The record is a 169-nucleotide RNA from Flintibacter hominis, which matches "Lysine riboswitch aptamer" in Rfam. The family's consensus secondary structure is taken from published work.
RNA sequence: AUAGUGGAUAGAGGCGCGGUACUCAUGCGUACUGUGGGACAGGGCCAGGCAGCCGUCCCCAGGAGAGGGUGUACCGCCGAAGGCUGGCUUCUCUGCCUGGAGAGGCGAACCUGGGCCGCAGGAGAAUAUCCUGCGGACUGUCACGAACAAGUGGAGCGCUAUCCGAAGG
Number, nucleotide and partner (000 for none) at each position: 001a000002u000003a000004g000005u000006g164007g163008a162009u161010a160011g159012a000013g000014g000015c000016g077017c076018g075019g074020u073021a072022c071023u000024c069025a000026u000027g000028c000029g000030u000031a000032c062033u061034g060035u000036g058037g057038g056039a000040c000041a000042g000043g000044g000045c000046c000047a000048g000049g000050c000051a000052g000053c000054c000055g000056u038057c037058c036059c000060c034061a033062g032063g000064a000065g000066a000067g000068g000069g024070u000071g022072u021073a020074c019075c018076g017077c016078c000079g000080a000081a112082g111083g110084c000085u108086g000087g106088c105089u104090u103091c102092u101093c000094u000095g000096c000097c000098u000099g000100g000101a092102g091103a090104g089105g088106c087107g000108a085109a000110c083111c082112u081113g139114g138115g000116c136117c135118g134119c133120a132121g131122g130123a129124g000125a000126a000127u000128a000129u123130c122131c121132u120133g119134c118135g117136g116137a000138c114139u113140g000141u154142c153143a152144c151145g000146a000147a000148c000149a000150a000151g144152u143153g142154g141155a000156g000157c000158g000159c011160u010161a009162u008163c007164c006165g000166a000167a000168g000169g000